Small nucleolar RNA Z161/Z228: an 84-nucleotide RNA sequence from Papaver somniferum. Its family is annotated with RNA processing and nucleolus in the Gene Ontology. It is annotated as a C/D-box small nucleolar RNA. NCBI's taxonomy places the organism under Eukaryota, Euphyllophyta, Magnoliopsida, Ranunculales, Papaver. On this family, see Chen et al., Nucleic Acids Res 2003: "The high diversity of snoRNAs in plants: identification and comparative study of 120 snoRNA genes from Oryza sativa".
[Rfam]
RNA sequence: GACCAGGUGAUGAAUUACAUUUUGAUAUCUCACGAUGGUCGUCUGAGACUUUGUGUCGAUGUUGAUCCAAUCUUACUGAUGGUC
Numbered sequence: 001g002a003c004c005a006g007g008u009g010a011u012g013a014a015u016u017a018c019a020u021u022u023u024g025a026u027a028u029c030u031c032a033c034g035a036u037g038g039u040c041g042u043c044u045g046a047g048a049c050u051u052u053g054u055g056u057c058g059a060u061g062u063u064g065a066u067c068c069a070a071u072c073u074u075a076c077u078g079a080u081g082g083u084c
Base pairs, nucleotide, nucleotide: 001083003081047057048056049055